[Rfam]
RNA: U2 spliceosomal RNA
Organism: Meyerozyma guilliermondii
Nucleotides: 190
Base pairs, nucleotide, nucleotide: 004023005022006021009018010017011016044063045062046061047060048059049058065079066078067077068076069075070074108144109143110142112140113139114138115137122133123132124131125130148182149181150180151179152178156173157172158171
Number, partner (000 for none) and nucleotide at each position: 001000a002000u003000c004023u005022c006021u007000u008000u009018g010017c011016c012000u013000u014000u015000u016011g017010g018009c019000u020000u021006a022005g023004a024000u025000c026000a027000a028000g029000u030000g031000u032000a033000g034000u035000a036000u037000c038000u039000g040000u041000u042000c043000u044063u045062u046061u047060c048059a049058g050000c051000g052000u053000a054000a055000c056000a057000g058049c059048u060047g061046a062045a063044a064000c065079g066078u067077c068076g069075u070074c071000a072000u073000u074070g075069a076068c077067g078066a079065c080000a081000u082000c083000a084000a085000u086000a087000u088000a089000u090000a091000c092000a093000u094000a095000u096000u097000u098000u099000u100000g101000g102000a103000c104000a105000a106000u107000u108144g109143c110142u111000u112140g113139u114138g115137g116000g117000a118000u119000c120000g121000a122133u123132g124131g125130g126000c127000u128000u129000g130125c131124u132123c133122a134000c135000a136000c137115c138114c139113a140112c141000u142110a143109g144108c145000g146000c147000a148182g149181u150180g151179u152178c153000g154000u155000u156173g157172c158171c159000a160000u161000u162000g163000c164000a165000c166000a167000u168000c169000u170000c171158g172157g173156c174000u175000u176000c177000u178152g179151a180150c181149g182148c183000a184000a185000c186000c187000c188000c189000u190000c